[Rfam]
Rfam assigns this 47-nucleotide RNA from Gossypium stocksii to the family "Plastid-rpl16 group II-D1 intron".
Rfam 15.1 lists 1,446 matches to the family in 693 species.
It scores 54 bits against the family's covariance model.
Gene Ontology term of the family: Group II intron splicing.
Pairs were carried over by alignment from the consensus structure, which was predicted with LocARNA.
About the family: Plastid-rpl16 is a non-coding RNA (ncRNA) recognised in plastids. It was recognised in and intronic region of a ribosome rpl16 gene.
RNA sequence: GAGAGCCUUAAGUCAAUAAAGCCUGAGAAGGUUGACUUAAGCACAAA
Numbered sequence: 001g002a003g004a005g006c007c008u009u010a011a012g013u014c015a016a017u018a019a020a021g022c023c024u025g026a027g028a029a030g031g032u033u034g035a036c037u038u039a040a041g042c043a044c045a046a047a
Stems, first nucleotide, its partner, number of pairs: 007041002010038008
Dot-bracket structure: ......((.((((((((.............)))))))).))......